[Rfam]
RNA sequence: GAGGCGGUAUCGAAUGUCGAGCUGUACUCUUGCUGUAAAUGGAAUAAUCAAGAAUUUGUUAUUGGGAUGCACCAUCAUAACUGCGUUUGACGGUUACGUUGGAUUCUGCUCUGAGCCGUAAGGACCGAGACAGAAGG
Numbered sequence: 001g002a003g004g005c006g007g008u009a010u011c012g013a014a015u016g017u018c019g020a021g022c023u024g025u026a027c028u029c030u031u032g033c034u035g036u037a038a039a040u041g042g043a044a045u046a047a048u049c050a051a052g053a054a055u056u057u058g059u060u061a062u063u064g065g066g067a068u069g070c071a072c073c074a075u076c077a078u079a080a081c082u083g084c085g086u087u088u089g090a091c092g093g094u095u096a097c098g099u100u101g102g103a104u105u106c107u108g109c110u111c112u113g114a115g116c117c118g119u120a121a122g123g124a125c126c127g128a129g130a131c132a133g134a135a136g137g
Base pairs, nucleotide, nucleotide: 001029002028003027004025005024006023007022008021010020011019106133107132108131109129110128111127113125116123117122